[Rfam]
RNA sequence: AGUAACAUAGUUCCGCUGCCCAAGACAGCAGGUACCGACAAGGUUUAAUCGCAGCAAUGCGGCCCGCCGAGGUGGUUCUGAUAAGUUUCGCGCUUUGACGACCCCUGCGUCUUUGGACGGCAGGGGUCGUUUCUUUUUCUCAAG
Numbered sequence: 001a002g003u004a005a006c007a008u009a010g011u012u013c014c015g016c017u018g019c020c021c022a023a024g025a026c027a028g029c030a031g032g033u034a035c036c037g038a039c040a041a042g043g044u045u046u047a048a049u050c051g052c053a054g055c056a057a058u059g060c061g062g063c064c065c066g067c068c069g070a071g072g073u074g075g076u077u078c079u080g081a082u083a084a085g086u087u088u089c090g091c092g093c094u095u096u097g098a099c100g101a102c103c104c105c106u107g108c109g110u111c112u113u114u115g116g117a118c119g120g121c122a123g124g125g126g127u128c129g130u131u132u133c134u135u136u137u138u139c140u141c142a143a144g
Base pairs, nucleotide, nucleotide: 028067029066031064032063033062034044035043036042099129100128101127102126103125104124105123106122107121108120
The record is a 144-nucleotide RNA from Eggerthella sp. YY7918, which matches "Ribosomal protein L10 leader" in Rfam. About the family: This family is a putative r-protein leader autoregulatory structure found in B. subtilis and other low-GC Gram-positive bacteria. It scores 50 bits against the family's covariance model. Rfam links the family to the GO term regulation of gene expression.